[Rfam]
The record is a 125-nucleotide sequence from Lactuca sativa, which matches "Small nucleolar RNA snoR104" in Rfam. Rfam 15.1 lists 612 matches to the family in 228 species. The literature on the family includes a 2002 paper in Curr Biol by Marker et al., "Experimental RNomics: identification of 140 candidates for small non-messenger RNAs in the plant Arabidopsis thaliana". It is annotated as an H/ACA-box small nucleolar RNA. Taxonomically the source falls in Lactuca (Eukaryota, Streptophytina, Mesangiospermae, Gunneridae).
RNA sequence: GGGGAGCAUUUAAAGUUUAAAUGUUGCCUGAUAUACCCUUCCUACAACAAAAAAAUAAAAUCUCUGCUUUUCCUACUUGUUGCACGUGAGACACGUGUGCAAGCCUCUUGACUAUGAGAUACAUA
Dot-bracket structure: (((.(((((((.......))))))).)))................................(((...........(((((...(((.......)))..)))))............))).......